[Rfam]
G-CSF factor stem-loop destabilising element (SLDE): a 91-nucleotide RNA sequence from Cavia porcellus. This family represents the granulocyte colony-stimulating factor stem-loop destabilising element (G-CSF SLDE). G-CSF is secreted by fibroblasts and endothelial cells in response to the inflammatory mediators interleukin-1 (IL-1) and tumour necrosis factor alpha and by activated macrophages. The synthesis of G-CSF is regulated both transcriptionally and through control of mRNA stability. On this family, see Putland et al., Mol Cell Biol 2002: "RNA destabilization by the granulocyte colony-stimulating factor stem-loop destabilizing element involves a single stem-loop that promotes deadenylation". The base pairs follow the family's consensus structure, which is taken from published work. Gene Ontology term of the family: nuclear-transcribed mRNA poly(A) tail shortening. Rfam 15.1 lists 132 matches to the family in 132 species.

RNA sequence: CCCAGGUCUGUGCCCUGCAGGGCCAGGAGCAUCAGGGUCUCCCGCGUGGGGGACGACAUCCCUGUUUAAUAUUUAAACAGCAGUGUUCCCA
Numbered sequence: 001c002c003c004a005g006g007u008c009u010g011u012g013c014c015c016u017g018c019a020g021g022g023c024c025a026g027g028a029g030c031a032u033c034a035g036g037g038u039c040u041c042c043c044g045c046g047u048g049g050g051g052g053a054c055g056a057c058a059u060c061c062c063u064g065u066u067u068a069a070u071a072u073u074u075a076a077a078c079a080g081c082a083g084u085g086u087u088c089c090c091a
Stems, first nucleotide, its partner, number of pairs: 003026001005024004011019002032056002037054007062080008